The record is a 102-nucleotide sequence from Oxalobacteraceae bacterium OM1, which matches "ZMP/ZTP riboswitch aptamer (pfl RNA motif)" in Rfam. NCBI's taxonomy places the organism under Bacteria, Pseudomonadota, Betaproteobacteria, Burkholderiales, Oxalobacteraceae. The base pairs follow the family's consensus structure, which is taken from published work. It scores 62 bits against the family's covariance model.

[Rfam]
Nucleotides: 102
Stems, first nucleotide, its partner, number of pairs: 004074009015063002017090005048059004080096004
Number, partner (000 for none) and nucleotide at each position: 001000u002000u003000c004074g005073u006072c007071u008070c009069a010068c011067g012066u013000g014000a015063c016062u017090g018089g019088c020087g021086a022000a023000a024000c025000g026000c027000g028000g029000g030000c031000c032000g033000c034000c035000c036000g037000g038000u039000c040000c041000g042000u043000g044000c045000a046000a047000g048059g049058u050057g051056g052000g053000g054000c055000u056051c057050c058049a059048c060000c061000g062016g063015g064000g065000a066012a067011c068010g069009u070008g071007a072006g073005a074004u075000a076000u077000c078000c079000a080096u081095g082094c083093c084000g085000u086021u087020c088019g089018c090017c091000u092000g093083g094082g095081c096080a097000g098000c099000c100000c101000a102000a